[Rfam]
RNA sequence: ACUCACAAGUUUGAAGCCAUAGCAGAAGUGUUCAUGGUGAGGCCUGUCAGAUUCCAGUGAAACUAUGAAUUCUGCU
Numbered sequence: 001a002c003u004c005a006c007a008a009g010u011u012u013g014a015a016g017c018c019a020u021a022g023c024a025g026a027a028g029u030g031u032u033c034a035u036g037g038u039g040a041g042g043c044c045u046g047u048c049a050g051a052u053u054c055c056a057g058u059g060a061a062a063c064u065a066u067g068a069a070u071u072c073u074g075c076u
Stems, first nucleotide, its partner, number of pairs: 013044001016043003021076007029039002049064002052061003

The record is a 76-nucleotide RNA sequence from Alligator mississippiensis, which matches "Mammalian CPEB3 ribozyme" in Rfam. The family's consensus secondary structure is taken from published work. The family has 14 seed sequences and 5,706 matches in Rfam 15.1.